[Rfam]
RNA sequence: UUGGCAUGAUGAGGAAGACAAUUGCUGUCUGAUCUAUUUGAUGAUAAAAUCCUCCUACUCAUUCUGA
Numbered sequence: 001u002u003g004g005c006a007u008g009a010u011g012a013g014g015a016a017g018a019c020a021a022u023u024g025c026u027g028u029c030u031g032a033u034c035u036a037u038u039u040g041a042u043g044a045u046a047a048a049a050u051c052c053u054c055c056u057a058c059u060c061a062u063u064c065u066g067a
Stems, first nucleotide, its partner, number of pairs: 006062004029040001
RNA: Small nucleolar RNA Z105